A member of the RNA family "Small nucleolar RNA SNORD2" from Candidula unifasciata, 53 nucleotides long.
For this family Rfam cites "Identification of a novel box C/D snoRNA from mouse nucleolar cDNA library" (Zhou et al., Gene, 2004).
Pairs were carried over by alignment from the consensus structure, which was predicted with WAR.
Its family is annotated with nucleolus and RNA processing in the Gene Ontology.
By type it is a C/D-box small nucleolar RNA.
The organism belongs to Candidula, within Eukaryota.
[Rfam]
RNA sequence: CAGUGGUGUAAUGAUGUUCCAUCUUUCGGGGCUGAUUUUAAAUGAUGCCACUG
Numbered sequence: 001c002a003g004u005g006g007u008g009u010a011a012u013g014a015u016g017u018u019c020c021a022u023c024u025u026u027c028g029g030g031g032c033u034g035a036u037u038u039u040a041a042a043u044g045a046u047g048c049c050a051c052u053g
Stems, first nucleotide, its partner, number of pairs: 001053006